[Rfam]
RNA sequence: CACAGUUAAGGUGGGUGGAAUAAUAUAACAAUAUGUCACGUGUUGUUAUGGUAUUCCACCCUCCCUGAUGUG
Numbered sequence: 001c002a003c004a005g006u007u008a009a010g011g012u013g014g015g016u017g018g019a020a021u022a023a024u025a026u027a028a029c030a031a032u033a034u035g036u037c038a039c040g041u042g043u044u045g046u047u048a049u050g051g052u053a054u055u056c057c058a059c060c061c062u063c064c065c066u067g068a069u070g071u072g
Stems, first nucleotide, its partner, number of pairs: 003070002006068003010064002013061006020054003024050011
RNA: mir-2985 microRNA precursor family
Organism: Megalops atlanticus